[Rfam]
RNA sequence: UGAAUUCGGAGUAGCGUACUCCUCCUCCCAACGCUACGCCGAUAGGUCGACAACAUCCUCCUCCCAGUUGUCGAUCAUUAUUGUAACGCCCGCCGGAUCCUCCCCCGGUGGGCGUUUGUC
Numbered sequence: 001u002g003a004a005u006u007c008g009g010a011g012u013a014g015c016g017u018a019c020u021c022c023u024c025c026u027c028c029c030a031a032c033g034c035u036a037c038g039c040c041g042a043u044a045g046g047u048c049g050a051c052a053a054c055a056u057c058c059u060c061c062u063c064c065c066a067g068u069u070g071u072c073g074a075u076c077a078u079u080a081u082u083g084u085a086a087c088g089c090c091c092g093c094c095g096g097a098u099c100c101u102c103c104c105c106c107g108g109u110g111g112g113c114g115u116u117u118g119u120c
Stems, first nucleotide, its partner, number of pairs: 007041003011037007045076010086115011
About this RNA:
Alphaproteobacterial ar14: a 120-nucleotide sequence from Rhizobium sp. BK251. The match comes from Rfam's covariance-model search (104 bits). A reference for the family is del Val et al. (2012), "A survey of sRNA families in alpha-proteobacteria", RNA Biol. Smr14C2 was renamed NfeR1 (Nodule Formation Efficiency RNA) highly expressed in salt stress and during the symbiotic interaction on legume roots. The family has 118 seed sequences and 784 matches in Rfam 15.1. The family's RNA type in Rfam is small RNA.